[Rfam]
RNA sequence: AAUCCCAAUGAUGAUGAAGAAUUAAAAAAUGUUAAAAGUAGUGACCGAUUAUAUAUUGACGAUAAUCAAAUUUUGAGGGAUU
Numbered sequence: 001a002a003u004c005c006c007a008a009u010g011a012u013g014a015u016g017a018a019g020a021a022u023u024a025a026a027a028a029a030u031g032u033u034a035a036a037a038g039u040a041g042u043g044a045c046c047g048a049u050u051a052u053a054u055a056u057u058g059a060c061g062a063u064a065a066u067c068a069a070a071u072u073u074u075g076a077g078g079g080a081u082u
Stems, first nucleotide, its partner, number of pairs: 001082006
RNA: Small nucleolar RNA R21
Organism: Raphanus sativus